Description: This 125-nucleotide RNA from Bucco capensis belongs to the Rfam family "Small nucleolar RNA ACA64". Lineage of the source: Eukaryota > Dipnotetrapodomorpha > Neoaves > Telluraves > Bucco. Rfam links the family to the GO terms RNA processing and nucleolus. A reference for the family is Schattner et al. (2006), "A computational screen for mammalian pseudouridylation guide H/ACA RNAs", RNA. Pairs were carried over by alignment from the consensus structure, which was predicted with WAR.

[Rfam]
RNA sequence: ACCAUCUGAAAAUUACUUGGAGUCUGCUGUGGCCCCUGGUGCAAUAACUGUGCUGACAGCAGAGGGAGCAUUUAACUCACUGCCCACAGUAAUGUGUGAGUAGUGAUACCCAUGCUCCUAUAAUC
Numbered sequence: 001a002c003c004a005u006c007u008g009a010a011a012a013u014u015a016c017u018u019g020g021a022g023u024c025u026g027c028u029g030u031g032g033c034c035c036c037u038g039g040u041g042c043a044a045u046a047a048c049u050g051u052g053c054u055g056a057c058a059g060c061a062g063a064g065g066g067a068g069c070a071u072u073u074a075a076c077u078c079a080c081u082g083c084c085c086a087c088a089g090u091a092a093u094g095u096g097u098g099a100g101u102a103g104u105g106a107u108a109c110c111c112a113u114g115c116u117c118c119u120a121u122a123a124u125c
Stems, first nucleotide, its partner, number of pairs: 006050001008048001010045001014041003022033003065118001067116005077106005085096003